[Rfam]
RNA: Small Cajal body specific RNA 3
Organism: Pteropus alecto
RNA sequence: AAUGGAACCUGCAGGAACCAACCACGUGGACAAACGAAAAACGCCUUUUGUCCACAAAUUGCAGUGACCCUCCAUAAACAUGGAGGGCUCUGUCUGGCUUAAGACAGCCGACCGUGUCUGAUCGUCCCUCUCCACAUGGC
Numbered sequence: 001a002a003u004g005g006a007a008c009c010u011g012c013a014g015g016a017a018c019c020a021a022c023c024a025c026g027u028g029g030a031c032a033a034a035c036g037a038a039a040a041a042c043g044c045c046u047u048u049u050g051u052c053c054a055c056a057a058a059u060u061g062c063a064g065u066g067a068c069c070c071u072c073c074a075u076a077a078a079c080a081u082g083g084a085g086g087g088c089u090c091u092g093u094c095u096g097g098c099u100u101a102a103g104a105c106a107g108c109c110g111a112c113c114g115u116g117u118c119u120g121a122u123c124g125u126c127c128c129u130c131u132c133c134a135c136a137u138g139g140c
Base pairs, nucleotide, nucleotide: 004070005069009064010063011062012061026055027054028053029052030051031050036047037046082133083132084131085130086129090124092122093121094120096118097117098116100114